[Rfam]
RNA sequence: UCUUGCCUGGGGUGUGCGUUACGAGUUACGUCCCUGAGCCGAUAAUUUGAAACUUUGAGUUGGACAUCUAACGCUGGUGAGCAAGCUUACCCUAAUUUAAUUAGGAGUAAGAAGCCUAAAAGCAGUUAAGUUUGACUCCCUUGAACCGACUGGUUCAAGGACCAUUACUGGUAGCGGCAUCUCGGGUCUUUA
Numbered sequence: 001u002c003u004u005g006c007c008u009g010g011g012g013u014g015u016g017c018g019u020u021a022c023g024a025g026u027u028a029c030g031u032c033c034c035u036g037a038g039c040c041g042a043u044a045a046u047u048u049g050a051a052a053c054u055u056u057g058a059g060u061u062g063g064a065c066a067u068c069u070a071a072c073g074c075u076g077g078u079g080a081g082c083a084a085g086c087u088u089a090c091c092c093u094a095a096u097u098u099a100a101u102u103a104g105g106a107g108u109a110a111g112a113a114g115c116c117u118a119a120a121a122g123c124a125g126u127u128a129a130g131u132u133u134g135a136c137u138c139c140c141u142u143g144a145a146c147c148g149a150c151u152g153g154u155u156c157a158a159g160g161a162c163c164a165u166u167a168c169u170g171g172u173a174g175c176g177g178c179a180u181c182u183c184g185g186g187u188c189u190u191u192a
Stems, first nucleotide, its partner, number of pairs: 005187011017176003030162004035157006057138003061134005070127003073123003081115002086111005
A member of the RNA family "6S / SsrS RNA" from Mannheimia haemolytica, 192 nucleotides long. From the family's description: E. coli 6S RNA was the first non coding RNA to be sequenced, but its function was unknown until recently. The sequence is in the family's curated seed alignment.